[Rfam]
Source information:
A member of the RNA family "Bacterial large signal recognition particle RNA" from Acetivibrio clariflavus, 264 nucleotides long. The family's RNA type in Rfam is non-coding RNA gene. Taxonomically the source falls in Acetivibrio clariflavus (Bacteria, Acetivibrionales, Acetivibrionaceae, Acetivibrio). About the family: The signal recognition particle (SRP) is a universally conserved ribonucleoprotein involved in the co-translational targeting of proteins to membranes.
RNA sequence: UCGUGCUAGAUGGGGAGGUAGCGGUGCCCUGUACCUGCAAUCCGCUAUAGCAGGGUUGAAUUCCUGCCUCAGGCAUGUUUUUGUAUGGUCUGCCCUAUGUAAGUGGCAAUGAAAAUCGGGUCCUGCGCAAUGAAAACCCAUGAACCCCGUCAGGUUCGGAAGAAAGCAGCGGUAAGUGGGCACUUUCAUGUGCCGCGGAAAUGCCUGGUUUGAGUUAACUGCAUAGGUAACGCUUGUAGGAACUUGUCAAAGGCAGGUGCACGA
Numbered sequence: 001u002c003g004u005g006c007u008a009g010a011u012g013g014g015g016a017g018g019u020a021g022c023g024g025u026g027c028c029c030u031g032u033a034c035c036u037g038c039a040a041u042c043c044g045c046u047a048u049a050g051c052a053g054g055g056u057u058g059a060a061u062u063c064c065u066g067c068c069u070c071a072g073g074c075a076u077g078u079u080u081u082u083g084u085a086u087g088g089u090c091u092g093c094c095c096u097a098u099g100u101a102a103g104u105g106g107c108a109a110u111g112a113a114a115a116u117c118g119g120g121u122c123c124u125g126c127g128c129a130a131u132g133a134a135a136a137c138c139c140a141u142g143a144a145c146c147c148c149g150u151c152a153g154g155u156u157c158g159g160a161a162g163a164a165a166g167c168a169g170c171g172g173u174a175a176g177u178g179g180g181c182a183c184u185u186u187c188a189u190g191u192g193c194c195g196c197g198g199a200a201a202u203g204c205c206u207g208g209u210u211u212g213a214g215u216u217a218a219c220u221g222c223a224u225a226g227g228u229a230a231c232g233c234u235u236g237u238a239g240g241a242a243c244u245u246g247u248c249a250a251a252g253g254c255a256g257g258u259g260c261a262c263g264a
Base pairs, nucleotide, nucleotide: 001264002263003262004261005260006259009057010056011055012030013029014028015027017025019023034054035053036052037051038050063257064256065255066254067253068252069251072248073247074246075245078242079241080240081239082238083237084236085235087233091229092228095226096225097224098223099222100221103219104218105216106215107214113211114210115209116208117207118206119205120204121203123198124197125196126195127194128190129189131188132187133186134185135184137180138179139178140177141176147172148171149170150169155164156163157162